[Rfam]
RNA: Lysine riboswitch aptamer
RNA sequence: UUCAAAAGUAGAGGUGCAGCAUUUAAGAGUACCAUGACUGAGUUAAGCACAGUGAGGCCAUGGGAAAGGAAUUGUUGCCGAAAUGCCUGGCUGACGCUUUAAGGCCAUGCAUUGGGACUGCAUAGAACAUGUGCAGGACUGUCACGCGAGAGUGGAGAGCUAUUGAGAAU
Numbered sequence: 001u002u003c004a005a006a007a008g009u010a011g012a013g014g015u016g017c018a019g020c021a022u023u024u025a026a027g028a029g030u031a032c033c034a035u036g037a038c039u040g041a042g043u044u045a046a047g048c049a050c051a052g053u054g055a056g057g058c059c060a061u062g063g064g065a066a067a068g069g070a071a072u073u074g075u076u077g078c079c080g081a082a083a084u085g086c087c088u089g090g091c092u093g094a095c096g097c098u099u100u101a102a103g104g105c106c107a108u109g110c111a112u113u114g115g116g117a118c119u120g121c122a123u124a125g126a127a128c129a130u131g132u133g134c135a136g137g138a139c140u141g142u143c144a145c146g147c148g149a150g151a152g153u154g155g156a157g158a159g160c161u162a163u164u165g166a167g168a169a170u
Base pairs, nucleotide, nucleotide: 007164008163009162010161011160016078017077018076019075020074021073023071024070032063033062034061035060036059038057039056082113083112084111085110086109088107089106090105091104092103114140115139118136119135120134121133122132123131124130142155143154144153145152